[Rfam]
RNA: Bacterial large subunit ribosomal RNA, nucleotides 2037 to 2623
Organism: Turicibacter sp. H121
RNA sequence: CCCGCGACAGGACGGAAAGACCCCGUGGAGCUUUACUGUAGCUUGAUAUUGAGCACUGGUGGCACAUGUACAGGAUAGGUAGGAGACGAAGAAACCAGGACGCCAGUCUUGGUGGAGUCGCUGUUGGGAUACUACCCUUGUGUCACUGGGGUUCUAACCCGUGGCCCUUAUCGGGUCAGGGAACAGUGUCAGGUGGGCAGUUUGACUGGGGCGGUCGCCUCCCAAAGAGUAACGGAGGCGCCCAAAGGUUCCCUCAGAAUGGUUGGAAAUCAUUCGAAGAGUGUAAAGGCAGAAGGGAGCUUGACUGCGAGACCUACAAGUCGAGCAGGGACGAAAGUCGGGCUUAGUGAUCCGGCGGUACCGAAUGGAAGGGCCGUCGCUCAACGGAUAAAAGCUACCCCGGGGAUAACAGGCUGAUCUCCCCCAAGAGUUCACAUCGACGGGGAGGUUUGGCACCUCGAUGUCGGCUCAUCGCAUCCUGGGGCUGUAGUCGGUCCCAAGGGUUGGGCUGUUCGCCCAUUAAAGCGGUACGCGAGCUGGGUUCAGAACGUCGUGAGACAGUUCGGUCCCUAUCCGUCGUGGGCGUA
Numbered sequence: 001c002c003c004g005c006g007a008c009a010g011g012a013c014g015g016a017a018a019g020a021c022c023c024c025g026u027g028g029a030g031c032u033u034u035a036c037u038g039u040a041g042c043u044u045g046a047u048a049u050u051g052a053g054c055a056c057u058g059g060u061g062g063c064a065c066a067u068g069u070a071c072a073g074g075a076u077a078g079g080u081a082g083g084a085g086a087c088g089a090a091g092a093a094a095c096c097a098g099g100a101c102g103c104c105a106g107u108c109u110u111g112g113u114g115g116a117g118u119c120g121c122u123g124u125u126g127g128g129a130u131a132c133u134a135c136c137c138u139u140g141u142g143u144c145a146c147u148g149g150g151g152u153u154c155u156a157a158c159c160c161g162u163g164g165c166c167c168u169u170a171u172c173g174g175g176u177c178a179g180g181g182a183a184c185a186g187u188g189u190c191a192g193g194u195g196g197g198c199a200g201u202u203u204g205a206c207u208g209g210g211g212c213g214g215u216c217g218c219c220u221c222c223c224a225a226a227g228a229g230u231a232a233c234g235g236a237g238g239c240g241c242c243c244a245a246a247g248g249u250u251c252c253c254u255c256a257g258a259a260u261g262g263u264u265g266g267a268a269a270u271c272a273u274u275c276g277a278a279g280a281g282u283g284u285a286a287a288g289g290c291a292g293a294a295g296g297g298a299g300c301u302u303g304a305c306u307g308c309g310a311g312a313c314c315u316a317c318a319a320g321u322c323g324a325g326c327a328g329g330g331a332c333g334a335a336a337g338u339c340g341g342g343c344u345u346a347g348u349g350a351u352c353c354g355g356c357g358g359u360a361c362c363g364a365a366u367g368g369a370a371g372g373g374c375c376g377u378c379g380c381u382c383a384a385c386g387g388a389u390a391a392a393a394g395c396u397a398c399c400c401c402g403g404g405g406a407u408a409a410c411a412g413g414c415u416g417a418u419c420u421c422c423c424c425c426a427a428g429a430g431u432u433c434a435c436a437u438c439g440a441c442g443g444g445g446a447g448g449u450u451u452g453g454c455a456c457c458u459c460g461a462u463g464u465c466g467g468c469u470c471a472u473c474g475c476a477u478c479c480u481g482g483g484g485c486u487g488u489a490g491u492c493g494g495u496c497c498c499a500a501g502g503g504u505u506g507g508g509c510u511g512u513u514c515g516c517c518c519a520u521u522a523a524a525g526c527g528g529u530a531c532g533c534g535a536g537c538u539g540g541g542u543u544c545a546g547a548a549c550g551u552c553g554u555g556a557g558a559c560a561g562u563u564c565g566g567u568c569c570c571u572a573u574c575c576g577u578c579g580u581g582g583g584c585g586u587a
Base pairs, nucleotide, nucleotide: 001583002582003581004580005579006578007577008576010575011574012573014570015569022404023403024402025401027400028399029396030395031394032393033392035201036200037199038198042193043192044191045190046189047188048187051154052153053152054151056149057148058147059146060145061144062143063142064141065140066139068137078136079135080134081133082132085119086118087117094113095112096111097110098109099108100107101106158181159180160179162178163177164176165175166174167173204216205215206214207213217239218238219237220236221235222234240385242342243341248300249299250298251297252296253295254280255279257275258274259273260272261271262270281290282289305328306327307326308325311322312321313320330339331338332337353379354378355377356376357375358374359373361372362371413454414453415452417451418448419447420446421445422444423443424442428438429437465540466538467537468536469535470532471529472528473527474526475525478503479502481498482497483496484495485494486493505519506518507517508516509515546564547563548562549561550559551558552557